[Rfam]
Rfam assigns this 89-nucleotide sequence from Streptomyces tubercidicus to the family "ZMP/ZTP riboswitch aptamer (pfl RNA motif)". Rfam 15.1 lists 3,295 matches to the family in 2,545 species. A search with the family's covariance model found it, with a score of 52 bits.
RNA sequence: GCGGCGAGCCGUGACUGGCGCUGGGGUGGAGCACCACCGGGGAGCGGCUCGGCCAUCCAAGGCCGGUGCCGCGCGCCUGGGCGAUCCCA
Numbered sequence: 001g002c003g004g005c006g007a008g009c010c011g012u013g014a015c016u017g018g019c020g021c022u023g024g025g026g027u028g029g030a031g032c033a034c035c036a037c038c039g040g041g042g043a044g045c046g047g048c049u050c051g052g053c054c055a056u057c058c059a060a061g062g063c064c065g066g067u068g069c070c071g072c073g074c075g076c077c078u079g080g081g082c083g084a085u086c087c088c089a
Base pairs, nucleotide, nucleotide: 003053005051006050007049008048009047010046011045012044015041016040017077018076019075020074021073026037027036028035029034067083068082069081070080